[Rfam]
RNA sequence: GGGGGUUUAGCUCAGGGGUAGAGCGCUCGCUUCGCAUGCGAGAAGUCGGGGGUUCGAAUCCCCCAUCCUCCA
Numbered sequence: 001g002g003g004g005g006u007u008u009a010g011c012u013c014a015g016g017g018g019u020a021g022a023g024c025g026c027u028c029g030c031u032u033c034g035c036a037u038g039c040g041a042g043a044a045g046u047c048g049g050g051g052g053u054u055c056g057a058a059u060c061c062c063c064c065a066u067c068c069u070c071c072a
Base pairs, nucleotide, nucleotide: 001071002070003069004068005067007065010024011023012022013021026042027041028040029039030038048064049063050062051061052060